[Rfam]
RNA: mir-30 microRNA precursor family
RNA sequence: GCGACUGUAAACAUCCUCGACUGGAAGCUGUGAAGCCACAAAUGGGCUUUCAGUCGGAUGUUUGCAGCUGC
Numbered sequence: 001g002c003g004a005c006u007g008u009a010a011a012c013a014u015c016c017u018c019g020a021c022u023g024g025a026a027g028c029u030g031u032g033a034a035g036c037c038a039c040a041a042a043u044g045g046g047c048u049u050u051c052a053g054u055c056g057g058a059u060g061u062u063u064g065c066a067g068c069u070g071c
Stems, first nucleotide, its partner, number of pairs: 001071003005067012020054010
Dot-bracket structure: (((.((((((((((((...((((((((((...............)))))))))).)))))))))))).)))